Shown here is a 581-nucleotide part of an RNA from Entamoeba invadens, a member of the family "Eukaryotic small subunit ribosomal RNA". The organism belongs to Entamoeba, within Eukaryota. It is one of the family's seed sequences.
[Rfam]
RNA sequence: AAGUUGUUGUGGUUAAAACGCUCGUAGUUGAUAAUGACUGUUUAAUUGUGUCACAAAAAAUCCAACAAGUCUAAGACUAUUGGAUGUCGGCAUAGUUUUUACAUAGGGCUUUAAAAUGUGUUGACCAACAUGUUUUGGGAUUUCUUUGAGAAAAACAAAGUGCUUGAAGCGGAUUUUAGUGAUGAAUGAUUGAGCAUGGUACAAGUCUGAAGGGGAUAGAAAUAUUGCUGGAGGAUGAUUAGAAGGAUUCGACGGGGUAAUAAAGAAAAUUGUGGGAGAGGUGAAAAUUCAUGAUCACAAUAAGAUUGUCUAGAGCGAAAGCAUUUUACCAGCACGGAUUCAUUAAUCAAGAACGACAGUUAGGGGAUCGAAGACGAUUAGAUACCGUCGUAGUCCUGACUAUAAACGAUAUGAACUGAAGAUUAUACCUGUACAGAAAGGGAACCUCUUUUUUAUUUCGGUAAGAAAUGUUUCCGAAUUGUUAGGUAUAACAAUCAAGGCCUCUGUGGGAUUCAAGGAGAAAUCCUUGAGUCUCUACAUUUCAGGGGGAGUAUGGUUGCAAGGCUGAAACUUAAAGGAAU
Numbered sequence: 001a002a003g004u005u006g007u008u009g010u011g012g013u014u015a016a017a018a019c020g021c022u023c024g025u026a027g028u029u030g031a032u033a034a035u036g037a038c039u040g041u042u043u044a045a046u047u048g049u050g051u052c053a054c055a056a057a058a059a060a061u062c063c064a065a066c067a068a069g070u071c072u073a074a075g076a077c078u079a080u081u082g083g084a085u086g087u088c089g090g091c092a093u094a095g096u097u098u099u100u101a102c103a104u105a106g107g108g109c110u111u112u113a114a115a116a117u118g119u120g121u122u123g124a125c126c127a128a129c130a131u132g133u134u135u136u137g138g139g140a141u142u143u144c145u146u147u148g149a150g151a152a153a154a155a156c157a158a159a160g161u162g163c164u165u166g167a168a169g170c171g172g173a174u175u176u177u178a179g180u181g182a183u184g185a186a187u188g189a190u191u192g193a194g195c196a197u198g199g200u201a202c203a204a205g206u207c208u209g210a211a212g213g214g215g216a217u218a219g220a221a222a223u224a225u226u227g228c229u230g231g232a233g234g235a236u237g238a239u240u241a242g243a244a245g246g247a248u249u250c251g252a253c254g255g256g257g258u259a260a261u262a263a264a265g266a267a268a269a270u271u272g273u274g275g276g277a278g279a280g281g282u283g284a285a286a287a288u289u290c291a292u293g294a295u296c297a298c299a300a301u302a303a304g305a306u307u308g309u310c311u312a313g314a315g316c317g318a319a320a321g322c323a324u325u326u327u328a329c330c331a332g333c334a335c336g337g338a339u340u341c342a343u344u345a346a347u348c349a350a351g352a353a354c355g356a357c358a359g360u361u362a363g364g365g366g367a368u369c370g371a372a373g374a375c376g377a378u379u380a381g382a383u384a385c386c387g388u389c390g391u392a393g394u395c396c397u398g399a400c401u402a403u404a405a406a407c408g409a410u411a412u413g414a415a416c417u418g419a420a421g422a423u424u425a426u427a428c429c430u431g432u433a434c435a436g437a438a439a440g441g442g443a444a445c446c447u448c449u450u451u452u453u454u455a456u457u458u459c460g461g462u463a464a465g466a467a468a469u470g471u472u473u474c475c476g477a478a479u480u481g482u483u484a485g486g487u488a489u490a491a492c493a494a495u496c497a498a499g500g501c502c503u504c505u506g507u508g509g510g511a512u513u514c515a516a517g518g519a520g521a522a523a524u525c526c527u528u529g530a531g532u533c534u535c536u537a538c539a540u541u542u543c544a545g546g547g548g549g550a551g552u553a554u555g556g557u558u559g560c561a562a563g564g565c566u567g568a569a570a571c572u573u574a575a576a577g578g579a580a581u
Base pairs, nucleotide, nucleotide: 010544011543012542018541020354022352023351027347028346029345245341246340247339248338249336253332256330257329258328259327260326262324263307264306269301270300271299272298273297274296278289279288315322316321359400360399361398362397363396364395369393373389374388375387376386411540412539413538415532416531418496419495423491424490425489426488427487428486429485430484433482434481435480436479518525519524546573547572548571555566556565557564558563